[Rfam]
RNA sequence: GAAACCAAUCAAUCAAGAAUGCCCAACCCUGAUUCCGACCAUUCAAAAGAUUGUGUUGAAUAACAAUAACUUUUGGAACAGCUUCUUCGGGGUUAUCCUUCGAAGCAAA
Numbered sequence: 001g002a003a004a005c006c007a008a009u010c011a012a013u014c015a016a017g018a019a020u021g022c023c024c025a026a027c028c029c030u031g032a033u034u035c036c037g038a039c040c041a042u043u044c045a046a047a048a049g050a051u052u053g054u055g056u057u058g059a060a061u062a063a064c065a066a067u068a069a070c071u072u073u074u075g076g077a078a079c080a081g082c083u084u085c086u087u088c089g090g091g092g093u094u095a096u097c098c099u100u101c102g103a104a105g106c107a108a109a
Base pairs, nucleotide, nucleotide: 002034003033004030009025011020013018036058037057038056039055040053041052043050044049083107085105086104087103088102089101090100091098092097
SL2 RNA: a 109-nucleotide RNA sequence from Caenorhabditis elegans.
It is annotated as a non-coding RNA gene.
A reference for the family is Dassanayake et al. (2001), "Trans-spliced leader RNA, 5S-rRNA genes and novel variant orphan spliced-leader of the lymphatic filarial nematode Wuchereria bancrofti, and a sensitive polymerase chain reaction based detection assay", Gene.
Lineage of the source: Eukaryota > Nematoda > Chromadorea > Rhabditoidea > Caenorhabditis.
Rfam's curators write: This family represents SL2 RNA. SL2 RNA is involved in trans splicing in lower eukaryotes. Trans-splicing is a form of RNA processing. The acquisition of a spliced leader from a SL RNA is a intra-molecular reaction which precisely joins exons derived from separately transcribed RNAs. Approximately 25% of C. elegans genes are organised into polycistronic transcription units and the presence of SL2 on an mRNA is an indication the the gene is in an operon.
Clan: SL clan.